[Rfam]
RNA sequence: AGUGCCACCGGAUCGACGCCACGCGUCACCACCAGGUAGUCCCGCAGCAGGAUGCCGUGUCGGUUCUC
Numbered sequence: 001a002g003u004g005c006c007a008c009c010g011g012a013u014c015g016a017c018g019c020c021a022c023g024c025g026u027c028a029c030c031a032c033c034a035g036g037u038a039g040u041c042c043c044g045c046a047g048c049a050g051g052a053u054g055c056c057g058u059g060u061c062g063g064u065u066c067u068c
Base pairs, nucleotide, nucleotide: 005062008059011030013028015027016026017025018024035056036055037054038053040052041051042050044048
A member of the RNA family "ASdes TB sRNA" from Nocardia sp. SYP-A9097, 68 nucleotides long.
It scores 80 bits against the family's covariance model.
The family's consensus secondary structure is taken from published work.
A reference for the family is Arnvig and Young (2009), "Identification of small RNAs in Mycobacterium tuberculosis", Mol Microbiol.
The organism belongs to Nocardia, within Bacteria.